[Rfam]
RNA sequence: AACGGCAAUGACAAGCGGCGAGAUUGUUUCCCAAGUUCUGGCCGGCCUCGACCUCGACUACAACCCGGUCGUGUCGGCCCUUGCUGCGCGCGUGGAGCCCGUGACCGUCCAAGAGCUGAAUACCCAAUUGCUGAGCUUUGACG
Number, nucleotide and partner (000 for none) at each position: 001a000002a000003c000004g142005g000006c140007a139008a138009u000010g000011a000012c000013a000014a000015g000016c000017g000018g000019c000020g000021a000022g000023a000024u000025u000026g000027u000028u000029u000030c000031c000032c000033a000034a000035g000036u000037u000038c000039u000040g000041g000042c000043c000044g000045g000046c000047c000048u000049c000050g000051a000052c000053c000054u000055c000056g000057a000058c000059u000060a000061c000062a000063a000064c000065c000066c000067g000068g000069u000070c000071g000072u000073g000074u000075c000076g000077g000078c000079c000080c000081u000082u000083g000084c000085u000086g000087c000088g000089c000090g000091c000092g000093u111094g110095g109096a108097g000098c000099c000100c000101g000102u000103g000104a000105c000106c000107g000108u096109c095110c094111a093112a000113g000114a000115g000116c000117u000118g000119a000120a000121u000122a000123c000124c000125c000126a000127a000128u000129u000130g000131c000132u000133g000134a000135g000136c000137u000138u008139u007140g006141a000142c004143g000
RNA: Small nucleolar RNA Z247
Organism: Triticum turgidum